Rfam assigns this 188-nucleotide RNA sequence from Medicago truncatula to the family "MIR2670 microRNA precursor family". Lineage of the source: Eukaryota > Gunneridae > Fabales > Fabaceae > Medicago. Its family is annotated with miRNA-mediated post-transcriptional gene silencing and RISC complex in the Gene Ontology.

[Rfam]
RNA sequence: UUGGGGGGAAAUAGUGGUCCGUUAAGUUGGGGAAAAAGACAUAAUCCCUUGGAAAAAAUUAGGUUUGUUUCCUUUUACUCCUAAAAUCUUGAAUCAAUAUGGGGGUAUAAAAGGAACCAAAUUUAAAUUUAACUCAAGGGGUCUUGAUGUCGUUUUCCCCAACAUGACAUAUCACUAUUUUCCCCAAG
Number, nucleotide and partner (000 for none) at each position: 001u000002u000003g000004g185005g184006g183007g182008g181009a180010a179011a178012u177013a176014g175015u174016g173017g172018u171019c000020c000021g168022u167023u166024a000025a000026g163027u162028u161029g160030g159031g158032g157033a156034a155035a154036a000037a000038g000039a000040c000041a148042u147043a000044a145045u141046c140047c139048c000049u137050u136051g135052g134053a000054a000055a130056a129057a128058a000059u126060u125061a124062g123063g122064u121065u120066u119067g118068u000069u116070u115071c114072c113073u112074u111075u110076u107077a106078c105079u104080c103081c102082u101083a100084a000085a000086a000087u092088c000089u000090u000091g000092a087093a000094u000095c000096a000097a000098u000099a000100u083101g082102g081103g080104g079105g078106u077107a076108u000109a000110a075111a074112a073113g072114g071115a070116a069117c000118c067119a066120a065121a064122u063123u062124u061125a060126a059127a000128u057129u056130u055131a000132a000133c000134u052135c051136a050137a049138g000139g047140g046141g045142u000143c000144u000145u044146g000147a042148u041149g000150u000151c000152g000153u000154u035155u034156u033157c032158c031159c030160c029161a028162a027163c026164a000165u000166g023167a022168c021169a000170u000171a018172u017173c016174a015175c014176u013177a012178u011179u010180u009181u008182c007183c006184c005185c004186a000187a000188g000
The base pairs follow the family's consensus structure, which was predicted with RNAalifold.